[Rfam]
Nucleotides: 275
Base pairs, nucleotide, nucleotide: 001275002274003273004272038255040253041252042251047230050227051226053224065215066214067213068212069130070129071128072127074125075124088115089114090113091112094110095109096108097107138193140192141191142190143189145187153179154178155177156176159173161169
Number, partner (000 for none) and nucleotide at each position: 001275g002274g003273u004272c005000a006000g007000u008000g009000a010000u011000g012000a013000u014000u015000g016000g017000u018000a019000a020000a021000a022000g023000g024000u025000c026000u027000g028000a029000u030000u031000g032000c033000a034000c035000u036000a037000a038255a039000u040253g041252u042251c043000a044000c045000a046000g047230c048000c049000c050227c051226u052000u053224c054000c055000c056000u057000g058000c059000c060000c061000u062000c063000a064000c065215c066214u067213c068212c069130c070129a071128g072127c073000a074125g075124c076000c077000c078000a079000u080000u081000a082000u083000u084000u085000u086000c087000u088115c089114c090113u091112a092000u093000c094110a095109c096108a097107u098000u099000u100000a101000a102000g103000u104000c105000a106000u107097g108096u109095g110094u111000u112091u113090g114089g115088g116000a117000u118000a119000a120000u121000g122000g123000a124075g125074c126000a127072g128071c129070u130069g131000a132000u133000a134000g135000u136000u137000u138193g139000g140192g141191a142190u143189g144000c145187u146000g147000u148000c149000a150000g151000u152000a153179u154178g155177u156176g157000c158000c159173u160000c161169u162000g163000a164000g165000a166000g167000u168000a169161g170000a171000c172000a173159a174000u175000u176156c177155a178154c179153a180000g181000c182000u183000g184000a185000c186000a187145a188000a189143c190142a191141u192140c193138c194000g195000a196000c197000a198000g199000a200000a201000c202000c203000a204000g205000c206000u207000g208000u209000g210000c211000a212068g213067g214066a215065g216000a217000u218000u219000g220000a221000a222000g223000a224053g225000u226051g227050g228000c229000a230047g231000c232000g233000g234000c235000g236000g237000g238000u239000g240000u241000g242000a243000c244000g245000g246000u247000g248000c249000a250000u251042g252041a253040u254000c255038u256000c257000a258000a259000g260000u261000u262000u263000u264000c265000a266000a267000u268000c269000u270000g271000a272004g273003a274002c275001c